Background: Rfam assigns this 266-nucleotide sequence from Clostridium tagluense to the family "Bacterial large signal recognition particle RNA". By type it is a non-coding RNA gene. Rfam describes the family as follows. The signal recognition particle (SRP) is a universally conserved ribonucleoprotein involved in the co-translational targeting of proteins to membranes. A reference for the family is Regalia et al. (2002), "Prediction of signal recognition particle RNA genes", Nucleic Acids Res.
RNA sequence: CCGUACUAGCCGGGGAGUUAGCGGUGCCCUGUAACCUGCAACCCGCUACAGCAGGGGUGAAUUCCUCGCCUAGGUUAUAAAAUGUGUGGUCUGACCUAUAUAAGUGGCGUUGAGAACUGGGCCCCACGCAAUGGAAACUCAUGAACCCCGUCAGGUCCGGAAGGAAGCAGCGGUAAGUGAAUCUUUCCAUGUGCCGUGGAUCAACCUGGUUUGAGUUAACUGUAUAGGUAACGCGCAUAGUUUAUUCAUCGAAGCGAGGUGUACGG
Numbered sequence: 001c002c003g004u005a006c007u008a009g010c011c012g013g014g015g016a017g018u019u020a021g022c023g024g025u026g027c028c029c030u031g032u033a034a035c036c037u038g039c040a041a042c043c044c045g046c047u048a049c050a051g052c053a054g055g056g057g058u059g060a061a062u063u064c065c066u067c068g069c070c071u072a073g074g075u076u077a078u079a080a081a082a083u084g085u086g087u088g089g090u091c092u093g094a095c096c097u098a099u100a101u102a103a104g105u106g107g108c109g110u111u112g113a114g115a116a117c118u119g120g121g122c123c124c125c126a127c128g129c130a131a132u133g134g135a136a137a138c139u140c141a142u143g144a145a146c147c148c149c150g151u152c153a154g155g156u157c158c159g160g161a162a163g164g165a166a167g168c169a170g171c172g173g174u175a176a177g178u179g180a181a182u183c184u185u186u187c188c189a190u191g192u193g194c195c196g197u198g199g200a201u202c203a204a205c206c207u208g209g210u211u212u213g214a215g216u217u218a219a220c221u222g223u224a225u226a227g228g229u230a231a232c233g234c235g236c237a238u239a240g241u242u243u244a245u246u247c248a249u250c251g252a253a254g255c256g257a258g259g260u261g262u263a264c265g266g
Stems, first nucleotide, its partner, number of pairs: 001266006009058003012030004017025003035055005064259006073250003077246001079243003083239006092230002096227006104220002106217003114212008124199005129191002132189005137182001139180004148173004156165003